The family of this 121-nucleotide RNA from Marinoscillum furvescens is "SAM riboswitch aptamer (S box leader)".
RNA sequence: CAUUUAUCGAGAAAGGCUGAGGGACUGGGCCCUAUGAAGCCUUGGCAACCUUUCCUGACAUACCCCGUCAGGAUUUCGGUGCCACUUCCCAUCCCGAAUUUGAGUUCGGGAGAGAUAAGUG
Numbered sequence: 001c002a003u004u005u006a007u008c009g010a011g012a013a014a015g016g017c018u019g020a021g022g023g024a025c026u027g028g029g030c031c032c033u034a035u036g037a038a039g040c041c042u043u044g045g046c047a048a049c050c051u052u053u054c055c056u057g058a059c060a061u062a063c064c065c066c067g068u069c070a071g072g073a074u075u076u077c078g079g080u081g082c083c084a085c086u087u088c089c090c091a092u093c094c095c096g097a098a099u100u101u102g103a104g105u106u107c108g109g110g111a112g113a114g115a116u117a118a119g120u121g
Stems, first nucleotide, its partner, number of pairs: 001121008013043005021032003028090001029088001044083004049079002053073007087113001093110006
Rfam links the family to the GO term regulation of gene expression.